[Rfam]
The family of this 87-nucleotide sequence from Quisquiliibacterium transsilvanicum is "c-di-GMP-I riboswitch aptamer". Pairs were carried over by alignment from the consensus structure, which is taken from published work. The family has 155 seed sequences and 5,092 matches in Rfam 15.1.
RNA sequence: GUCCGAAAAGGGCAAACCCGGCGAAAGCCGGGGACGCAAAGUCACCGGUCUAAGGGACGGCAGUCCUACGACAGCGGGACCGCCGGA
Numbered sequence: 001g002u003c004c005g006a007a008a009a010g011g012g013c014a015a016a017c018c019c020g021g022c023g024a025a026a027g028c029c030g031g032g033g034a035c036g037c038a039a040a041g042u043c044a045c046c047g048g049u050c051u052a053a054g055g056g057a058c059g060g061c062a063g064u065c066c067u068a069c070g071a072c073a074g075c076g077g078g079a080c081c082g083c084c085g086g087a
Base pairs, nucleotide, nucleotide: 012037013036017032018031019030020029021028022027041080042079043078045077046076047075048072049071050070055066056065057064058063
Dot-bracket structure: ...........((...((((((....))))))...))...(((.((((((....((((....))))...)))..)))))).......